[Rfam]
Nucleotides: 086
Base pairs, nucleotide, nucleotide: 012038013037017033018031019030020029021028022027041080042079043078044077048076049075050072051071052070057066058065059064
Number, partner (000 for none) and nucleotide at each position: 001000a002000u003000a004000u005000g006000u007000a008000a009000a010000u011000a012038g013037c014000a015000a016000g017033c018031c019030c020029a021028u022027u023000g024000a025000a026000a027022a028021a029020u030019g031018g032000a033017g034000u035000a036000c037013g038012c039000a040000a041080a042079a043078c044077u045000a046000u047000a048076g049075g050072g051071u052070c053000u054000a055000a056000g057066c058065u059064u060000g061000u062000u063000g064059a065058a066057g067000u068000a069000g070052g071051a072050u073000a074000g075049c076048c077044a078043g079042u080041u081000g082000c083000c084000a085000a086000u